[Rfam]
Shown here is a 99-nucleotide sequence from Anaerocolumna xylanovorans, a member of the family "THF (Tetrahydrofolate) riboswitch aptamer". A search with the family's covariance model found it, with a score of 93 bits. The family's consensus secondary structure is taken from published work. Lineage of the source: Bacteria > Bacillati > Lachnospirales > Anaerocolumna > Anaerocolumna xylanovorans. Tetrahydrofolate (THF) riboswitch was first reported for Ames et al. as an RNA motif in 5' untranslated (5'-UTR)regions of folate transport and biosynthesis genes in Firmicutes genomes. Rfam links the family to the GO term tetrahydrofolate metabolic process.
RNA sequence: AGCAGAGUAGGAUUUCGUGCGUUAAGUGUCACCGGAACGGGGAGUUGUCCGGUGAACGAAAAGGUAAAACUUGCGGUACGAUUUUCGCAUCCCGCUGCU
Numbered sequence: 001a002g003c004a005g006a007g008u009a010g011g012a013u014u015u016c017g018u019g020c021g022u023u024a025a026g027u028g029u030c031a032c033c034g035g036a037a038c039g040g041g042g043a044g045u046u047g048u049c050c051g052g053u054g055a056a057c058g059a060a061a062a063g064g065u066a067a068a069a070c071u072u073g074c075g076g077u078a079c080g081a082u083u084u085u086c087g088c089a090u091c092c093c094g095c096u097g098c099u
Base pairs, nucleotide, nucleotide: 001099002098003097004096005095010086011085012084015081016080017079018078019077020075021074022073026057027056029055030054031053032052033051034050035049036048040092041091042090044088061072062071063070